[Rfam]
RNA sequence: GGUCAUGAGUGUCAGCGUCAAGCCCCGGCUCGCUGGCCGGCAACCCUCCAACCGCGGUGGGGUGCCCCGGGUGAUGACCUGGUCUUCCGACUCGAGCCGGAAGACAAGCGCGGGUC
Numbered sequence: 001g002g003u004c005a006u007g008a009g010u011g012u013c014a015g016c017g018u019c020a021a022g023c024c025c026c027g028g029c030u031c032g033c034u035g036g037c038c039g040g041c042a043a044c045c046c047u048c049c050a051a052c053c054g055c056g057g058u059g060g061g062g063u064g065c066c067c068c069g070g071g072u073g074a075u076g077a078c079c080u081g082g083u084c085u086u087c088c089g090a091c092u093c094g095a096g097c098c099g100g101a102a103g104a105c106a107a108g109c110g111c112g113g114g115u116c
Base pairs, nucleotide, nucleotide: 001079002078003077004076009038011037012036013035014034015033016032021030022029039066040065041064044062045061046060048057049056082105083104084103085102086101087100088099089098091096
Rfam assigns this 116-nucleotide RNA sequence from Rhodococcus (subgen. Prescottella) equi to the family "SAM (S-adenosyl methionine) riboswitch aptamer".
Rfam 15.1 lists 2,360 matches to the family in 1,305 species.
Its Rfam clan is "SAM clan".
A search with the family's covariance model found it, with a score of 122 bits.